RNA sequence: ACGGGACCGGCUCUACCCCCCCGGAGCCGGACCGGUCGGCGGCCCCCGCUCUCCCCCCCAGCGGGGGUCGCCGUUC
Numbered sequence: 001a002c003g004g005g006a007c008c009g010g011c012u013c014u015a016c017c018c019c020c021c022c023g024g025a026g027c028c029g030g031a032c033c034g035g036u037c038g039g040c041g042g043c044c045c046c047c048g049c050u051c052u053c054c055c056c057c058c059c060a061g062c063g064g065g066g067g068u069c070g071c072c073g074u075u076c
Base pairs, nucleotide, nucleotide: 002035004033005032007030008029009028010027011026012025013024038072039071040070041069042068043067044066045065046064047063048062049061050060
6C RNA: a 76-nucleotide sequence from Thiemannella venezuelensis. Rfam classes the family as a cis-regulatory element. Pairs were carried over by alignment from the consensus structure, which is taken from published work.